[Rfam]
RNA sequence: GCCCGGUUAGCUCAGUCGGUAGAGCAUCUGACUUUUAAUCCGAGGGUCGCGGGUUCAAGUCCCUCAUCGGGCG
Numbered sequence: 001g002c003c004c005g006g007u008u009a010g011c012u013c014a015g016u017c018g019g020u021a022g023a024g025c026a027u028c029u030g031a032c033u034u035u036u037a038a039u040c041c042g043a044g045g046g047u048c049g050c051g052g053g054u055u056c057a058a059g060u061c062c063c064u065c066a067u068c069g070g071g072c073g
Stems, first nucleotide, its partner, number of pairs: 001072007010025004027043002030040002049065001051063003